[Rfam]
Notes:
Shown here is a 47-nucleotide sequence from Prosthecobacter vanneervenii, a member of the family "Acido-Lenti-1 RNA". Rfam 15.1 lists 2,607 matches to the family in 171 species. It scores 40 bits against the family's covariance model. Pairs were carried over by alignment from the consensus structure, which is taken from published work.

RNA sequence: CCCAGGCUCGCUUGCCCUGGGCUAUACUAUGUCGCCCCUUUGGGGCU
Numbered sequence: 001c002c003c004a005g006g007c008u009c010g011c012u013u014g015c016c017c018u019g020g021g022c023u024a025u026a027c028u029a030u031g032u033c034g035c036c037c038c039u040u041u042g043g044g045g046c047u
Stems, first nucleotide, its partner, number of pairs: 001021006034046005